[Rfam]
RNA: Plastid-psbA-4 3UTR RNA
Organism: Coptis chinensis
RNA sequence: AAGUUGCAGGAGUAAUAACAAAAUUCUUAACAAAACAAGAAUUUUGUUAUUACUCCUGCAU
Dot-bracket structure: .....((((((((((((...((.(((((........))))).))...))))))))))))..